[Rfam]
RNA: mir-15 microRNA precursor family
RNA sequence: CCUUAAAGUACUCUAGCAGCACAUCAUGGUUUGCAUGAUCUUGGAAAGAUGCGAAUCAUUAUUUGCUGCUUUAGGAACUUAAGG
Numbered sequence: 001c002c003u004u005a006a007a008g009u010a011c012u013c014u015a016g017c018a019g020c021a022c023a024u025c026a027u028g029g030u031u032u033g034c035a036u037g038a039u040c041u042u043g044g045a046a047a048g049a050u051g052c053g054a055a056u057c058a059u060u061a062u063u064u065g066c067u068g069c070u071u072u073a074g075g076a077a078c079u080u081a082a083g084g
Stems, first nucleotide, its partner, number of pairs: 001084006015070007023062002026059011